Source information: The family of this 108-nucleotide sequence from Microvirga vignae is "EcpR1". Perviously named SmelC291, SmrC10, or Sra33. According to its overproduction phenotype it was renamed Elongated Cell Phenotype RNA1. Rfam classes the family as a small RNA. The organism belongs to Microvirga, within Bacteria.
[Rfam]
RNA sequence: AUGCCCUACGGAUGCUCAGGUCCGCCGCAUCUCCUGGGACUUCGUGGGCUCGGCCAGGCUGGGGGCGGAUCGUUGCCUCCUCAACACCGCUUCCCAGCUGGCCACCUC
Numbered sequence: 001a002u003g004c005c006c007u008a009c010g011g012a013u014g015c016u017c018a019g020g021u022c023c024g025c026c027g028c029a030u031c032u033c034c035u036g037g038g039a040c041u042u043c044g045u046g047g048g049c050u051c052g053g054c055c056a057g058g059c060u061g062g063g064g065g066c067g068g069a070u071c072g073u074u075g076c077c078u079c080c081u082c083a084a085c086a087c088c089g090c091u092u093c094c095c096a097g098c099u100g101g102c103c104a105c106c107u108c
Stems, first nucleotide, its partner, number of pairs: 003050001005048006015038006052103005058098006